Bacterial large subunit ribosomal RNA: a 384-nucleotide part of an RNA from Clostridiaceae bacterium 14S0207. The organism belongs to Clostridiaceae, within Bacteria. Its family is annotated with structural constituent of ribosome and ribosome in the Gene Ontology.

RNA sequence: GAGAAAUAAGUGAGAAUCUUAUUGGCCGAAAACCUAAGGUUUCCUGAGGAAGGCUCGUCCUCUCAGGGUUAGUCGGGACCUAAGCCCAGGCCGAAAGGCGUAGGCGAUGGACAAUUGGUUGAUAUUCCAAUACUGCCAAACUUCGUUUGACAAAUGGGGUGACGCAAAAGGAUAGGAUGUGCGCACUGUUGGAGUGUGCGUCUAAGCACUUAGGCAGACUAAACAGGAAAAUCCGUUUAGUUGUUAAUGCUGAGGUGUUAUGGGGAGCGAAAUUUAAGUAGCGAAGUAUCUGAUUCCAUGUUGCCAAGAAAAGCCUCUAUGGAGAAGUUUGGUACCCGUACCGCAAACCGACACAGGUAGGUGAGGAGAGAAUCCUAAGGCCGG
Numbered sequence: 001g002a003g004a005a006a007u008a009a010g011u012g013a014g015a016a017u018c019u020u021a022u023u024g025g026c027c028g029a030a031a032a033c034c035u036a037a038g039g040u041u042u043c044c045u046g047a048g049g050a051a052g053g054c055u056c057g058u059c060c061u062c063u064c065a066g067g068g069u070u071a072g073u074c075g076g077g078a079c080c081u082a083a084g085c086c087c088a089g090g091c092c093g094a095a096a097g098g099c100g101u102a103g104g105c106g107a108u109g110g111a112c113a114a115u116u117g118g119u120u121g122a123u124a125u126u127c128c129a130a131u132a133c134u135g136c137c138a139a140a141c142u143u144c145g146u147u148u149g150a151c152a153a154a155u156g157g158g159g160u161g162a163c164g165c166a167a168a169a170g171g172a173u174a175g176g177a178u179g180u181g182c183g184c185a186c187u188g189u190u191g192g193a194g195u196g197u198g199c200g201u202c203u204a205a206g207c208a209c210u211u212a213g214g215c216a217g218a219c220u221a222a223a224c225a226g227g228a229a230a231a232u233c234c235g236u237u238u239a240g241u242u243g244u245u246a247a248u249g250c251u252g253a254g255g256u257g258u259u260a261u262g263g264g265g266a267g268c269g270a271a272a273u274u275u276a277a278g279u280a281g282c283g284a285a286g287u288a289u290c291u292g293a294u295u296c297c298a299u300g301u302u303g304c305c306a307a308g309a310a311a312a313g314c315c316u317c318u319a320u321g322g323a324g325a326a327g328u329u330u331g332g333u334a335c336c337c338g339u340a341c342c343g344c345a346a347a348c349c350g351a352c353a354c355a356g357g358u359a360g361g362u363g364a365g366g367a368g369a370g371a372a373u374c375c376u377a378a379g380g381c382c383g384g
Stems, first nucleotide, its partner, number of pairs: 005023006024382004032362004038342002043067006052060002074338004079110002084105003088101001090099003114131005134334011151321002156317005164304004170297003175291005181201006202263002206258004213251003218241007226234002267282002270279001348357002364376004